[Rfam]
RNA sequence: UGCAAAAAAUUGCCGAAUUCCCGCGCACAAGGGAAACGGGGGAACCAGUCUUUUGGGUGAAUUGAUCUUGCCGUACAGGGAUCAUAGGGAGCCUUCAACCGAACCCUCCAGCUAACCUCGUAGGCUUUGGAAGGAGUCACC
Numbered sequence: 001u002g003c004a005a006a007a008a009a010u011u012g013c014c015g016a017a018u019u020c021c022c023g024c025g026c027a028c029a030a031g032g033g034a035a036a037c038g039g040g041g042g043a044a045c046c047a048g049u050c051u052u053u054u055g056g057g058u059g060a061a062u063u064g065a066u067c068u069u070g071c072c073g074u075a076c077a078g079g080g081a082u083c084a085u086a087g088g089g090a091g092c093c094u095u096c097a098a099c100c101g102a103a104c105c106c107u108c109c110a111g112c113u114a115a116c117c118u119c120g121u122a123g124g125c126u127u128u129g130g131a132a133g134g135a136g137u138c139a140c141c
Base pairs, nucleotide, nucleotide: 012125013124014123018035019034020033021032022031036121037120038119039118040117041116047053055106056105057104063084064083065082066081067080068079069078087100088099